[Rfam]
RNA: Group II catalytic intron D1-D4-2
Organism: Blautia argi
RNA sequence: GGCGGUGGGCCCGCCGAAAUCGCCAUACAGGUGGAGGUUUCAAACUACCUUAAGGUGCUGUGGACAAAAGCCAUGGUAUUGAGCGCUAAGGAAAAGGCAGUGAAAAACUGUCAAGU
Numbered sequence: 001g002g003c004g005g006u007g008g009g010c011c012c013g014c015c016g017a018a019a020u021c022g023c024c025a026u027a028c029a030g031g032u033g034g035a036g037g038u039u040u041c042a043a044a045c046u047a048c049c050u051u052a053a054g055g056u057g058c059u060g061u062g063g064a065c066a067a068a069a070g071c072c073a074u075g076g077u078a079u080u081g082a083g084c085g086c087u088a089a090g091g092a093a094a095a096g097g098c099a100g101u102g103a104a105a106a107a108c109u110g111u112c113a114a115g116u
Base pairs, nucleotide, nucleotide: 001015002014003013004012005011016041017040018039019038020037021036023034024033025032026031046115048091049090050089051088052087054080055079057077058076059075061073062072063071096112097111098110099109100108101107
Dot-bracket structure: (((((.....)))))((((((.((((....)))).))))))....(.(((((.((.(((.(((.......))).))).))......)))))....((((((.....))))))..).